[Rfam]
The record is a 172-nucleotide RNA sequence from Adhaeretor mobilis, which matches "Group II catalytic intron D1-D4-3" in Rfam.
Group II introns are found in rRNA, tRNA and mRNA of organelles in fungi, plants and protists, and also in mRNA in bacteria.
The base pairs follow the family's consensus structure.
It scores 75 bits against the family's covariance model.
RNA sequence: UUUCCCGUGAGGGCGUGUGGGAUGGAAGCCGGAGCCGAACCGCAGCACUGAACGCAAGUGAACCCUUAGGCAGGCUCCUCGGACCUGGGCAAGCGUGCCUUCCAACGCAACGCCCGAUAUCCGUUGGUGGCCGAGGAGUAGUGAGGGCGGAGGCGGCAGGACAUUGCUCGAU
Numbered sequence: 001u002u003u004c005c006c007g008u009g010a011g012g013g014c015g016u017g018u019g020g021g022a023u024g025g026a027a028g029c030c031g032g033a034g035c036c037g038a039a040c041c042g043c044a045g046c047a048c049u050g051a052a053c054g055c056a057a058g059u060g061a062a063c064c065c066u067u068a069g070g071c072a073g074g075c076u077c078c079u080c081g082g083a084c085c086u087g088g089g090c091a092a093g094c095g096u097g098c099c100u101u102c103c104a105a106c107g108c109a110a111c112g113c114c115c116g117a118u119a120u121c122c123g124u125u126g127g128u129g130g131c132c133g134a135g136g137a138g139u140a141g142u143g144a145g146g147g148c149g150g151a152g153g154c155g156g157c158a159g160g161a162c163a164u165u166g167c168u169c170g171a172u
Stems, first nucleotide, its partner, number of pairs: 002015001004013003028172001030170003040159001042157002045154001046152001048150003063147006074139003078135005084130001087115004093108004